A member of the RNA family "RAGATH-18 RNA" from Bacillus mycoides, 67 nucleotides long. Rfam describes the family as follows. Actinobacteria, Firmicutes, Fusobacteria, Thermotogae (1 example). It is annotated as a small RNA. The organism belongs to Bacillus, within Bacteria.
RNA sequence: CCUGUGGAGUGUUAUAGCAAACUGAAGUAGCGAGUUAUUGGCGAGACAGGACACGUAGAAGCAGGAA
Numbered sequence: 001c002c003u004g005u006g007g008a009g010u011g012u013u014a015u016a017g018c019a020a021a022c023u024g025a026a027g028u029a030g031c032g033a034g035u036u037a038u039u040g041g042c043g044a045g046a047c048a049g050g051a052c053a054c055g056u057a058g059a060a061g062c063a064g065g066a067a
Stems, first nucleotide, its partner, number of pairs: 001065005009054005022049003030042002